Background:
This 292-nucleotide sequence from Pieris brassicae belongs to the Rfam family "Nuclear RNase P". It is annotated as a ribozyme. A search with the family's covariance model found it, with a score of 126 bits. Its Rfam clan is "RNaseP clan".
RNA sequence: CCAAUGAUAAUCUCGUACAUGGGGUGUACAAGCUGAGUGUUUAUCACUUCUUCCACCCCGGGAAGGUCUGAGUAAAGGUCCUGUGUUUUAAAUACAUUCUAGCCGGAUGCUUUCAUCAUAAGGAAGGUGGGGAAACCAGAAAUUAAAAUUUUGUGUUUAGCCUAUGAUUCCCAAGUUGGUUGUGGAAGAGGUGCAGAUGCUAUAAUUGUUGGAAUUUCCCAUGACCAGCCAUUUUAGCAUGAUCUACGAGAUGACAUAAGUCAUAACUCAAUUCAGACUAGUCUUUCAUUGG
Numbered sequence: 001c002c003a004a005u006g007a008u009a010a011u012c013u014c015g016u017a018c019a020u021g022g023g024g025u026g027u028a029c030a031a032g033c034u035g036a037g038u039g040u041u042u043a044u045c046a047c048u049u050c051u052u053c054c055a056c057c058c059c060g061g062g063a064a065g066g067u068c069u070g071a072g073u074a075a076a077g078g079u080c081c082u083g084u085g086u087u088u089u090a091a092a093u094a095c096a097u098u099c100u101a102g103c104c105g106g107a108u109g110c111u112u113u114c115a116u117c118a119u120a121a122g123g124a125a126g127g128u129g130g131g132g133a134a135a136c137c138a139g140a141a142a143u144u145a146a147a148a149u150u151u152u153g154u155g156u157u158u159a160g161c162c163u164a165u166g167a168u169u170c171c172c173a174a175g176u177u178g179g180u181u182g183u184g185g186a187a188g189a190g191g192u193g194c195a196g197a198u199g200c201u202a203u204a205a206u207u208g209u210u211g212g213a214a215u216u217u218c219c220c221a222u223g224a225c226c227a228g229c230c231a232u233u234u235u236a237g238c239a240u241g242a243u244c245u246a247c248g249a250g251a252u253g254a255c256a257u258a259a260g261u262c263a264u265a266a267c268u269c270a271a272u273u274c275a276g277a278c279u280a281g282u283c284u285u286u287c288a289u290u291g292g
Stems, first nucleotide, its partner, number of pairs: 001292004007286001009284001012250006021059005035049005068276005077226004095109005110126005127222007147207004251264005
Dot-bracket structure: ((((..(.(..((((((...(((((.........(((((.....))))).....)))))........[[[[[....((((..............(((((.....)))))(((((.......)))))(((((((.............((((.....................................................))))........)))))))))))..................))))))(((((....))))).......]]]]].......).)..))))